Shown here is a 211-nucleotide RNA from Planktotalea frisia, a member of the family "permuted transfer-messenger RNA".
The literature on the family includes a 1996 paper in RNA by Williams and Bartel, "Phylogenetic analysis of tmRNA secondary structure".
RNA sequence: GGACAUAAACGCGCCCGUAAUAAGCGGUUCGGACCCGGGGGCGGUACCCGGCGACUCCACCAAUCACCCGUUCAUUUGACGGCGGAGGGGGUCGAAAUAGGAUCGACGAACGUCUAAAGGGGUUAGCUUUGUUUCGGCUGGGUGCCACCGUAUCGGCCCAAAAUGUACAAUUGCAAAUGACAAUCGUGCUCCAAUGGCGAUGGCAGCGUAA
Numbered sequence: 001g002g003a004c005a006u007a008a009a010c011g012c013g014c015c016c017g018u019a020a021u022a023a024g025c026g027g028u029u030c031g032g033a034c035c036c037g038g039g040g041g042c043g044g045u046a047c048c049c050g051g052c053g054a055c056u057c058c059a060c061c062a063a064u065c066a067c068c069c070g071u072u073c074a075u076u077u078g079a080c081g082g083c084g085g086a087g088g089g090g091g092u093c094g095a096a097a098u099a100g101g102a103u104c105g106a107c108g109a110a111c112g113u114c115u116a117a118a119g120g121g122g123u124u125a126g127c128u129u130u131g132u133u134u135c136g137g138c139u140g141g142g143u144g145c146c147a148c149c150g151u152a153u154c155g156g157c158c159c160a161a162a163a164u165g166u167a168c169a170a171u172u173g174c175a176a177a178u179g180a181c182a183a184u185c186g187u188g189c190u191c192c193a194a195u196g197g198c199g200a201u202g203g204c205a206g207c208g209u210a211a
Stems, first nucleotide, its partner, number of pairs: 001134005013123004025112002029109003035051005052094007135150003
Rfam classes the family as a non-coding RNA gene.